[Rfam]
Nucleotides: 060
Base pairs, nucleotide, nucleotide: 014044015043016042017041018040019039020038021037022036023035024034028059029058030057031056032055
Number, partner (000 for none) and nucleotide at each position: 001000g002000g003000g004000a005000a006000a007000c008000g009000g010000g011000a012000g013000c014044u015043g016042g017041g018040c019039u020038u021037g022036g023035g024034a025000c026000a027000a028059g029058a030057g031056c032055c033000a034024u035023c036022c037021c038020a039019a040018g041017c042016c043015c044014a045000a046000g047000g048000c049000c050000a051000a052000g053000u054000a055032g056031g057030c058029u059028c060000a